A member of the RNA family "U12 minor spliceosomal RNA" from Rhododendron simsii, 157 nucleotides long.
The family is grouped with related families in Rfam's "U2 clan".
A search with the family's covariance model found it, with a score of 97 bits.
It is annotated as a spliceosomal small nuclear RNA.
The organism belongs to Rhododendron, within Eukaryota.
RNA sequence: UUGCCUUAAACUAAUGAGUAAGGAAAACAAAGCGAGUGGUGAGAGCUGCUCGCCGCGCAUGAUAUAAACUGAGUUGCGCACGAAUUUUUGGAGGGGUUAUAGGCUUGCCGAGUGUAGACGCUGCUUACUUUGCAGAACUCGUUCGUGCGGGCCUCCC
Numbered sequence: 001u002u003g004c005c006u007u008a009a010a011c012u013a014a015u016g017a018g019u020a021a022g023g024a025a026a027a028c029a030a031a032g033c034g035a036g037u038g039g040u041g042a043g044a045g046c047u048g049c050u051c052g053c054c055g056c057g058c059a060u061g062a063u064a065u066a067a068a069c070u071g072a073g074u075u076g077c078g079c080a081c082g083a084a085u086u087u088u089u090g091g092a093g094g095g096g097u098u099a100u101a102g103g104c105u106u107g108c109c110g111a112g113u114g115u116a117g118a119c120g121c122u123g124c125u126u127a128c129u130u131u132g133c134a135g136a137a138c139u140c141g142u143u144c145g146u147g148c149g150g151g152c153c154u155c156c157c
Stems, first nucleotide, its partner, number of pairs: 004023005032053008055079005095157002101154007109145002112142003121135004